[Rfam]
RNA: Purine riboswitch aptamer
Organism: Clostridium senegalense
RNA sequence: UAUAAUAGGAACAAUAACCUUCGUAUAAGUCUAAUAAUAUGGGUUAGACGUUUCUACAAUACUACCGUAAAUAGUAUAGCUAUGAAGACAGAAUAUACUUGG
Numbered sequence: 001u002a003u004a005a006u007a008g009g010a011a012c013a014a015u016a017a018c019c020u021u022c023g024u025a026u027a028a029g030u031c032u033a034a035u036a037a038u039a040u041g042g043g044u045u046a047g048a049c050g051u052u053u054c055u056a057c058a059a060u061a062c063u064a065c066c067g068u069a070a071a072u073a074g075u076a077u078a079g080c081u082a083u084g085a086a087g088a089c090a091g092a093a094u095a096u097a098c099u100u101g102g
Base pairs, nucleotide, nucleotide: 019087020086021085022084023083024082025081029049030048031047032046033045034044035043059077060076061075062074063073064072